[Rfam]
RNA sequence: UGGGAGAAUGAUACACAAAUUGGGCAGAGGUACUGCUCUAAUUGUCACUAGACCUCCCUAGAAUAAAUUGCCUUUCGAUGACCAGGACAAAUUGAGUGAAAUCGUCAUGGACAGAUACGGAGCAGACAAAU
Numbered sequence: 001u002g003g004g005a006g007a008a009u010g011a012u013a014c015a016c017a018a019a020u021u022g023g024g025c026a027g028a029g030g031u032a033c034u035g036c037u038c039u040a041a042u043u044g045u046c047a048c049u050a051g052a053c054c055u056c057c058c059u060a061g062a063a064u065a066a067a068u069u070g071c072c073u074u075u076c077g078a079u080g081a082c083c084a085g086g087a088c089a090a091a092u093u094g095a096g097u098g099a100a101a102u103c104g105u106c107a108u109g110g111a112c113a114g115a116u117a118c119g120g121a122g123c124a125g126a127c128a129a130a131u
Stems, first nucleotide, its partner, number of pairs: 002058005015045004022038004068125004073120002082110003087105002090102001

Rfam assigns this 131-nucleotide RNA from Cricetulus griseus to the family "Small Cajal body specific RNA 8". NCBI's taxonomy places the organism under Eukaryota, Bilateria, Amniota, Theria, Cricetulus. scaRNAs are a specific class of small nuclear RNAs which localise to the Cajal bodies and guide the modification of RNA polymerase II transcribed spliceosomal RNAs U1, U2, U4, U5 and U12. U92 belong to the H/ACA box class of guide RNAs as it has the predicted hairpin-hinge-hairpin-tail structure, conserved H/ACA-box motifs and is found associated with GAR1. Rfam 15.1 lists 955 matches to the family in 741 species. The family's RNA type in Rfam is small Cajal body RNA. It scores 134 bits against the family's covariance model.